[Rfam]
RNA sequence: AGCACAAAUGAUGAACUAUAAAGGGACUUAAUUCUGAAACACCUGAUGUUAGCUUGCAGUAUACUGAUGUGC
Numbered sequence: 001a002g003c004a005c006a007a008a009u010g011a012u013g014a015a016c017u018a019u020a021a022a023g024g025g026a027c028u029u030a031a032u033u034c035u036g037a038a039a040c041a042c043c044u045g046a047u048g049u050u051a052g053c054u055u056g057c058a059g060u061a062u063a064c065u066g067a068u069g070u071g072c
Stems, first nucleotide, its partner, number of pairs: 002072005